[Rfam]
RNA sequence: AACAAUGUCUUUUAUAAAUAGACACCCAGAGUCACGAAGUGUUCAGGAGAAAUCCGGUGGACAUAUACAUGGAUCUAGUAGGAUUUAUCCUACUUUGUUUGUGUACGGUUAUGCGAGUAUACCUCGUAUACACUGUCGUGCUCGCGGUUGAUCUUAGAGCAAGUUGUUGUCGUUUUAAUCCAAUGUGGUUGGGCAAGGAAGAGUCUAUCAAUGCUGGGAGUUCUAAUAAUUGAGCUCUUUAUUCGGUAUUUUCUUCAAACAUUU
Numbered sequence: 001a002a003c004a005a006u007g008u009c010u011u012u013u014a015u016a017a018a019u020a021g022a023c024a025c026c027c028a029g030a031g032u033c034a035c036g037a038a039g040u041g042u043u044c045a046g047g048a049g050a051a052a053u054c055c056g057g058u059g060g061a062c063a064u065a066u067a068c069a070u071g072g073a074u075c076u077a078g079u080a081g082g083a084u085u086u087a088u089c090c091u092a093c094u095u096u097g098u099u100u101g102u103g104u105a106c107g108g109u110u111a112u113g114c115g116a117g118u119a120u121a122c123c124u125c126g127u128a129u130a131c132a133c134u135g136u137c138g139u140g141c142u143c144g145c146g147g148u149u150g151a152u153c154u155u156a157g158a159g160c161a162a163g164u165u166g167u168u169g170u171c172g173u174u175u176u177a178a179u180c181c182a183a184u185g186u187g188g189u190u191g192g193g194c195a196a197g198g199a200a201g202a203g204u205c206u207a208u209c210a211a212u213g214c215u216g217g218g219a220g221u222u223c224u225a226a227u228a229a230u231u232g233a234g235c236u237c238u239u240u241a242u243u244c245g246g247u248a249u250u251u252u253c254u255u256c257a258a259a260c261a262u263u264u
Stems, first nucleotide, its partner, number of pairs: 020154003023150002026147002034139004040063005049054001066105009106135004110130006167197002171193001173191001198256004203251001206248004218237006

The family of this 264-nucleotide RNA sequence from Tetrapisispora phaffii is "Small nucleolar RNA snR11". It scores 127 bits against the family's covariance model. Taxonomically the source falls in Tetrapisispora phaffii (Eukaryota, Fungi, Saccharomycetes, Tetrapisispora).